This 449-nucleotide part of an RNA from Salinirubellus salinus belongs to the Rfam family "Archaeal large subunit ribosomal RNA".
Pairs were carried over by alignment from the consensus structure, which is taken from published work.
NCBI's taxonomy places the organism under Archaea, Methanobacteriati, Halobacteria, Natronomonadaceae, Salinirubellus.
A search with the family's covariance model found it, with a score of 2841 bits.
[Rfam]
RNA sequence: CCAACCGAAAAAUGUCGAAGCAUUACCUCUGCUGAGGUAGUUCGUGGGGUAGAGCGACCGAUUGGGGGCACCGACUCCGAGAGGAGUCGGACCUCCUGUCAAACUCCGAACUCACGGACGCCGUGGACGCAGGGAGUCCGCUGUGCGGGGUAAGCUUGUGCAGCGUGAGGGAGACAACCCAGAACCGGGUUAAGGUCCCCAAGUGCGGAUUAAGUGCUAUCGAAGGUGGUCUCGAGCCCCAGACAGCCGGGAGGUGAGCUUAGAAGCAGCUACCCUCUAAGAAAAGCGUAACAGCUUACCGGCCGAGGUUCGAGGCGCCGAAAAUGAUCGGGGCUCAAAUCCGCCACCGAGACCUGGUGACACCGGUCAAACGGUGUUUCCGUAGGUUGGCAGUCCGGUCGGGUAGAAGCAUGGGCGAGAGUUCGUGUGGACCGAUUGGUCAAGAAAAU
Numbered sequence: 001c002c003a004a005c006c007g008a009a010a011a012a013u014g015u016c017g018a019a020g021c022a023u024u025a026c027c028u029c030u031g032c033u034g035a036g037g038u039a040g041u042u043c044g045u046g047g048g049g050u051a052g053a054g055c056g057a058c059c060g061a062u063u064g065g066g067g068g069c070a071c072c073g074a075c076u077c078c079g080a081g082a083g084g085a086g087u088c089g090g091a092c093c094u095c096c097u098g099u100c101a102a103a104c105u106c107c108g109a110a111c112u113c114a115c116g117g118a119c120g121c122c123g124u125g126g127a128c129g130c131a132g133g134g135a136g137u138c139c140g141c142u143g144u145g146c147g148g149g150g151u152a153a154g155c156u157u158g159u160g161c162a163g164c165g166u167g168a169g170g171g172a173g174a175c176a177a178c179c180c181a182g183a184a185c186c187g188g189g190u191u192a193a194g195g196u197c198c199c200c201a202a203g204u205g206c207g208g209a210u211u212a213a214g215u216g217c218u219a220u221c222g223a224a225g226g227u228g229g230u231c232u233c234g235a236g237c238c239c240c241a242g243a244c245a246g247c248c249g250g251g252a253g254g255u256g257a258g259c260u261u262a263g264a265a266g267c268a269g270c271u272a273c274c275c276u277c278u279a280a281g282a283a284a285a286g287c288g289u290a291a292c293a294g295c296u297u298a299c300c301g302g303c304c305g306a307g308g309u310u311c312g313a314g315g316c317g318c319c320g321a322a323a324a325u326g327a328u329c330g331g332g333g334c335u336c337a338a339a340u341c342c343g344c345c346a347c348c349g350a351g352a353c354c355u356g357g358u359g360a361c362a363c364c365g366g367u368c369a370a371a372c373g374g375u376g377u378u379u380c381c382g383u384a385g386g387u388u389g390g391c392a393g394u395c396c397g398g399u400c401g402g403g404u405a406g407a408a409g410c411a412u413g414g415g416c417g418a419g420a421g422u423u424c425g426u427g428u429g430g431a432c433c434g435a436u437u438g439g440u441c442a443a444g445a446a447a448a449u
Stems, first nucleotide, its partner, number of pairs: 001390006011024005026136001027134006036122003040119008052107001053105002060100003064096005073088006140164009169180003184358007194348003203345001205344006225319003229316010246303005252276003257271003277281001282297001286295002359380002361376005391444001393441001395439008409428008